Background
The record is a 59-nucleotide RNA sequence from Thermoproteus tenax, which matches "Pyrobaculum sRNA 205" in Rfam. Non canonical pseudouridylation guide sRNA features. The source organism's lineage runs through Archaea, Thermoproteota, Thermoprotei, Thermoproteales and Thermoproteus tenax.

RNA sequence: GACGCCACACCGACACCCCCGUGUGGGGCGGAUGAGAGUGGCGGGUUACCCCGGCAUCA
Numbered sequence: 001g002a003c004g005c006c007a008c009a010c011c012g013a014c015a016c017c018c019c020c021g022u023g024u025g026g027g028g029c030g031g032a033u034g035a036g037a038g039u040g041g042c043g044g045g046u047u048a049c050c051c052c053g054g055c056a057u058c059a
Stems, first nucleotide, its partner, number of pairs: 004042003009039002011036001016028004
Dot-bracket structure: ...(((..(((....((((.....)))).......).))))).................